Flavo-1 RNA: an 80-nucleotide RNA sequence from Flavobacterium muglaense. NCBI's taxonomy places the organism under Bacteria, Pseudomonadati, Bacteroidota, Flavobacteriales, Flavobacterium.

RNA sequence: AAACAGCCCCGAUUGCAGUAAAAAUCCUUAUAAGGCAAUUGUUUUGCCUUAUAAGAUUGAAACGGAAAGCGGGAGGGAAU
Numbered sequence: 001a002a003a004c005a006g007c008c009c010c011g012a013u014u015g016c017a018g019u020a021a022a023a024a025u026c027c028u029u030a031u032a033a034g035g036c037a038a039u040u041g042u043u044u045u046g047c048c049u050u051a052u053a054a055g056a057u058u059g060a061a062a063c064g065g066a067a068a069g070c071g072g073g074a075g076g077g078a079a080u
Stems, first nucleotide, its partner, number of pairs: 009072003013068002018063002023058004029053010

Record summary:
A search with the family's covariance model found it, with a score of 66 bits.